[Rfam]
Shown here is a 75-nucleotide sequence from Myotis myotis, a member of the family "mir-9193 microRNA precursor family". Rfam links the family to the GO terms miRNA-mediated post-transcriptional gene silencing and RISC complex. A search with the family's covariance model found it, with a score of 66 bits.

Nucleotides: 075
Base pairs, nucleotide, nucleotide: 004072006070009067010066013064014063015062016061017060018059019058020057024053025052026051029048031046032045033044034043035042
Number, partner (000 for none) and nucleotide at each position: 001000c002000u003000c004072g005000g006070a007000g008000g009067g010066g011000u012000g013064g014063g015062g016061g017060u018059c019058c020057c021000c022000c023000a024053g025052c026051c027000c028000a029048g030000a031046u032045u033044g034043c035042g036000a037000g038000a039000g040000g041000g042035u043034g044033c045032a046031g047000g048029c049000c050000a051026g052025g053024c054000c055000a056000a057020g058019g059018g060017a061016c062015c063014c064013c065000a066010c067009c068000a069000a070006u071000g072004c073000a074000c075000g